This 166-nucleotide part of an RNA from Coccomyxa sp. Obi belongs to the Rfam family "Archaeal large subunit ribosomal RNA". The literature on the family includes a 2001 paper in Science by Yusupov et al., "Crystal structure of the ribosome at 5.5 A resolution". It scores 1197 bits against the family's covariance model. Taxonomically the source falls in Coccomyxa (Eukaryota, Viridiplantae, Chlorophyta, Trebouxiophyceae). The base pairs follow the family's consensus structure, which is taken from published work.

RNA sequence: AACUGAACAGGCUAAUGACUCCCAAGAGCUCAUAUCGACGGAGUCGUUUGGCACCUCGAUGUCGACUCAUCGCAUCCUGGGGCUGGAGAAGGUCCCAAGGGUUCGGCUGUUCGCCGAUGAAAGCGGUACGUGAGUUGGGUUUAGUGCGCCGAGAGGCAGUACGGUU
Numbered sequence: 001a002a003c004u005g006a007a008c009a010g011g012c013u014a015a016u017g018a019c020u021c022c023c024a025a026g027a028g029c030u031c032a033u034a035u036c037g038a039c040g041g042a043g044u045c046g047u048u049u050g051g052c053a054c055c056u057c058g059a060u061g062u063c064g065a066c067u068c069a070u071c072g073c074a075u076c077c078u079g080g081g082g083c084u085g086g087a088g089a090a091g092g093u094c095c096c097a098a099g100g101g102u103u104c105g106g107c108u109g110u111u112c113g114c115c116g117a118u119g120a121a122a123g124c125g126g127u128a129c130g131u132g133a134g135u136u137g138g139g140u141u142u143a144g145u146g147c148g149c150c151g152a153g154a155g156g157c158a159g160u161a162c163g164g165u166u
Base pairs, nucleotide, nucleotide: 011052012051013050015049016046017045018044019043020042021041022040026036027035063138064136065135066134067133068130069127070126071125072124073123076101077100080095081094082093083092084091103117104116105115106114107113144162145161146160147159148157149156150155